Description: The record is a 69-nucleotide sequence, which matches "tRNA" in Rfam. By type it is a transfer RNA. The family's consensus secondary structure is taken from published work. Rfam links the family to the GO term triplet codon-amino acid adaptor activity.
[Rfam]
RNA sequence: GUCUACGUAGCUUAACCCCCAAAGCAAGACACUGAAAAUGCCUAGAUGGAUUCACACAUCCCAUAGACA
Numbered sequence: 001g002u003c004u005a006c007g008u009a010g011c012u013u014a015a016c017c018c019c020c021a022a023a024g025c026a027a028g029a030c031a032c033u034g035a036a037a038a039u040g041c042c043u044a045g046a047u048g049g050a051u052u053c054a055c056a057c058a059u060c061c062c063a064u065a066g067a068c069a
Stems, first nucleotide, its partner, number of pairs: 001068005007062001010025004027043002030040002048061004